[Rfam]
RNA sequence: UUUUUUAGGGAAGAUCUGGCCUUCCUGCAAGGGAAGGCGGAAUUUUCCU
Numbered sequence: 001u002u003u004u005u006u007a008g009g010g011a012a013g014a015u016c017u018g019g020c021c022u023u024c025c026u027g028c029a030a031g032g033g034a035a036g037g038c039g040g041a042a043u044u045u046u047c048c049u
Base pairs, nucleotide, nucleotide: 008049009048010047011046012045013044014043015039019038020037021036022035023034024033025032
RNA: HIV Ribosomal frameshift signal